The family of this 66-nucleotide RNA sequence from Capsella rubella is "Small nucleolar RNA U49". Rfam 15.1 lists 340 matches to the family in 152 species. It scores 75 bits against the family's covariance model. Rfam classes the family as a C/D-box small nucleolar RNA. Rfam links the family to the GO terms RNA processing and nucleolus. A reference for the family is Brown et al. (2001), "Multiple snoRNA gene clusters from Arabidopsis", RNA. Clan: SNORD49 clan.
RNA sequence: CUCCGAUGAAGAAGCAAUCCCAUAAGAUAGGAAGUGCCGUAUGACACUUUACACAACAGCGUGACU
Numbered sequence: 001c002u003c004c005g006a007u008g009a010a011g012a013a014g015c016a017a018u019c020c021c022a023u024a025a026g027a028u029a030g031g032a033a034g035u036g037c038c039g040u041a042u043g044a045c046a047c048u049u050u051a052c053a054c055a056a057c058a059g060c061g062u063g064a065c066u
Stems, first nucleotide, its partner, number of pairs: 014060002031050006
The source organism's lineage runs through Eukaryota, Streptophyta, Embryophyta, Spermatophyta and Capsella.